[Rfam]
RNA sequence: GAAAAAGUAGGGGUCUGUUGCCUCUGUGAAUGGACCUCUCGUAAACAUCUGGGAUAUCAGUCUCAUUGUUAUUGGGUGAACCUUUGUUUGUUGUUGGUGACUGAAGGUUCAGUAAAUGAUGAAACAUUU
Numbered sequence: 001g002a003a004a005a006a007g008u009a010g011g012g013g014u015c016u017g018u019u020g021c022c023u024c025u026g027u028g029a030a031u032g033g034a035c036c037u038c039u040c041g042u043a044a045a046c047a048u049c050u051g052g053g054a055u056a057u058c059a060g061u062c063u064c065a066u067u068g069u070u071a072u073u074g075g076g077u078g079a080a081c082c083u084u085u086g087u088u089u090g091u092u093g094u095u096g097g098u099g100a101c102u103g104a105a106g107g108u109u110c111a112g113u114a115a116a117u118g119a120u121g122a123a124a125c126a127u128u129u
Stems, first nucleotide, its partner, number of pairs: 005048001007046001011037002014034004064121007077111007

Small nucleolar RNA snoR74: a 129-nucleotide sequence from Carpinus fangiana. Lineage of the source: Eukaryota > Magnoliopsida > eudicotyledons > Pentapetalae > Carpinus. Its family is annotated with RNA processing and nucleolus in the Gene Ontology. Rfam 15.1 lists 1,404 matches to the family in 223 species.